[Rfam]
RNA sequence: AUCGCUUCUCGGCCUUUUGGCUAAGAUCAUCGGUAGUAUCUGUUCUUAUCGGCUUGAUCUCUGAUAGGGCAUUCAUCGAAUGCUCUCAGGAUUAAUGCAAUUUUUGGAUUACGUUCGAGGCUAGGAAUUUAUUCCGCUCGAGCCACGGGUCGAACUGCCUUUGCACUACAGGCAGAAUCGGCCCACAUAAU
Numbered sequence: 001a002u003c004g005c006u007u008c009u010c011g012g013c014c015u016u017u018u019g020g021c022u023a024a025g026a027u028c029a030u031c032g033g034u035a036g037u038a039u040c041u042g043u044u045c046u047u048a049u050c051g052g053c054u055u056g057a058u059c060u061c062u063g064a065u066a067g068g069g070c071a072u073u074c075a076u077c078g079a080a081u082g083c084u085c086u087c088a089g090g091a092u093u094a095a096u097g098c099a100a101u102u103u104u105u106g107g108a109u110u111a112c113g114u115u116c117g118a119g120g121c122u123a124g125g126a127a128u129u130u131a132u133u134c135c136g137c138u139c140g141a142g143c144c145a146c147g148g149g150u151c152g153a154a155c156u157g158c159c160u161u162u163g164c165a166c167u168a169c170a171g172g173c174a175g176a177a178u179c180g181g182c183c184c185a186c187a188u189a190a191u
Stems, first nucleotide, its partner, number of pairs: 007026003011022004047066006068084007113143007124135004147184006155175005
Notes: The record is a 191-nucleotide RNA sequence from Araneus ventricosus, which matches "U2 spliceosomal RNA" in Rfam. Its Rfam clan is "U2 clan". Pairs were carried over by alignment from the consensus structure, which is taken from published work. It scores 145 bits against the family's covariance model. The literature on the family includes a 1997 paper in Nucleic Acids Res by Zwieb, "The uRNA database". Rfam links the family to the GO terms pre-mRNA branch point binding, mRNA branch site recognition and U2 snRNP. NCBI's taxonomy places the organism under Eukaryota, Metazoa, Arthropoda, Araneoidea, Araneus.